[Rfam]
RNA sequence: UUAACUCAAAUUUGUAUGGAGUUGGAACAGCGCCCCUAGCGGCAAACGUAGGCAGACUUUUUAACUCCAUACAAAUUUGAAUUA
Numbered sequence: 001u002u003a004a005c006u007c008a009a010a011u012u013u014g015u016a017u018g019g020a021g022u023u024g025g026a027a028c029a030g031c032g033c034c035c036c037u038a039g040c041g042g043c044a045a046a047c048g049u050a051g052g053c054a055g056a057c058u059u060u061u062u063a064a065c066u067c068c069a070u071a072c073a074a075a076u077u078u079g080a081a082u083u084a
Stems, first nucleotide, its partner, number of pairs: 008078009018068001020066008034052002039047001
This 84-nucleotide sequence from Bombyx mori belongs to the Rfam family "mir-2807 microRNA precursor family". Pairs were carried over by alignment from the consensus structure, which was predicted with RNAalifold. A search with the family's covariance model found it, with a score of 61 bits. Gene Ontology terms of the family: miRNA-mediated post-transcriptional gene silencing and RISC complex.